Rfam assigns this 63-nucleotide RNA from Chinchilla lanigera to the family "Ma3 gene ribosomal frameshift signal". The match comes from Rfam's covariance-model search (46 bits). Rfam classes the family as a frameshift element.

RNA sequence: GGCAAACGAAGAUGGGGCUGGGGAGAUGAGCUACCCCAAGUCCUCCUCAAGAGAAUAGGCUCA
Numbered sequence: 001g002g003c004a005a006a007c008g009a010a011g012a013u014g015g016g017g018c019u020g021g022g023g024a025g026a027u028g029a030g031c032u033a034c035c036c037c038a039a040g041u042c043c044u045c046c047u048c049a050a051g052a053g054a055a056u057a058g059g060c061u062c063a
Stems, first nucleotide, its partner, number of pairs: 014044006021037003028062005